[Rfam]
RNA sequence: UCAACGCGCGUGGGAGAGUUCGCCCAGGCGGCGCCGAAGGGGCAAUUCCUCCCCGGAACCUCUCAGGCACCAGGACCACGCGACGAGG
Numbered sequence: 001u002c003a004a005c006g007c008g009c010g011u012g013g014g015a016g017a018g019u020u021c022g023c024c025c026a027g028g029c030g031g032c033g034c035c036g037a038a039g040g041g042g043c044a045a046u047u048c049c050u051c052c053c054c055g056g057a058a059c060c061u062c063u064c065a066g067g068c069a070c071c072a073g074g075a076c077c078a079c080g081c082g083a084c085g086a087g088g
Stems, first nucleotide, its partner, number of pairs: 007082007020031004033068003036064002040062003046056002
RNA: Glycine riboswitch aptamer
Organism: Aeromicrobium sp. Root495